[Rfam]
RNA sequence: GAGACACCACUAUGGAGCAAGACAUGCUUCAGUGGGGCUUUGGUGCUCACUGAGUCUGCCCUUUGAGUGUGCUGCU
Numbered sequence: 001g002a003g004a005c006a007c008c009a010c011u012a013u014g015g016a017g018c019a020a021g022a023c024a025u026g027c028u029u030c031a032g033u034g035g036g037g038c039u040u041u042g043g044u045g046c047u048c049a050c051u052g053a054g055u056c057u058g059c060c061c062u063u064u065g066a067g068u069g070u071g072c073u074g075c076u
Stems, first nucleotide, its partner, number of pairs: 001075001003073001005071003011065002014062002017059003021056003029053008037044002
Dot-bracket structure: (.(.(((...((.((.(((.(((.....((((((((((....)).)))))))))))))).)).))...))).).).

Shown here is a 76-nucleotide RNA sequence from Myotis davidii, a member of the family "mir-9229 microRNA precursor family".
Lineage of the source: Eukaryota > Bilateria > Vertebrata > Yangochiroptera > Myotis.
The family's consensus secondary structure was predicted with RNAalifold.
The match comes from Rfam's covariance-model search (74 bits).